[Rfam]
RNA: L13-Bacteroidia ribosomal protein leader
RNA sequence: GAGGAGCGUCAGAAACUCCUCAAACCGUGUGUUAAUAGUUGUGUCUUUGGUCGGGCGCAACGGUUAGGGAAUC
Numbered sequence: 001g002a003g004g005a006g007c008g009u010c011a012g013a014a015a016c017u018c019c020u021c022a023a024a025c026c027g028u029g030u031g032u033u034a035a036u037a038g039u040u041g042u043g044u045c046u047u048u049g050g051u052c053g054g055g056c057g058c059a060a061c062g063g064u065u066a067g068g069g070a071a072u073c
Stems, first nucleotide, its partner, number of pairs: 001021006032067005038061009